[Rfam]
RNA sequence: UGCCCUGAGGCUUAAAUCCGCACACGUGUCGACACAGUUUCCUGGGUGCCCGCAAGGGUUGGAGACUGGGGCGCGUGGAGGCCUAAC
Numbered sequence: 001u002g003c004c005c006u007g008a009g010g011c012u013u014a015a016a017u018c019c020g021c022a023c024a025c026g027u028g029u030c031g032a033c034a035c036a037g038u039u040u041c042c043u044g045g046g047u048g049c050c051c052g053c054a055a056g057g058g059u060u061g062g063a064g065a066c067u068g069g070g071g072c073g074c075g076u077g078g079a080g081g082c083c084u085a086a087c
Stems, first nucleotide, its partner, number of pairs: 023077008035068008048059004
The family of this 87-nucleotide RNA from Pseudomonas taeanensis is "t44 RNA".
This family consists of a number of bacterial RNA genes of between 135 and 170 bases in length. The t44 gene has been identified in several species of enteric bacteria but homologs have also been identified in Pseudomonas and Coxiella species.
For this family Rfam cites "Transcriptome analysis of Escherichia coli using high-density oligonucleotide probe arrays" (Tjaden et al., Nucleic Acids Res, 2002).
Pairs were carried over by alignment from the consensus structure, which was predicted with LocARNA.
It is annotated as a small RNA.
The organism belongs to Pseudomonas taeanensis, within Bacteria.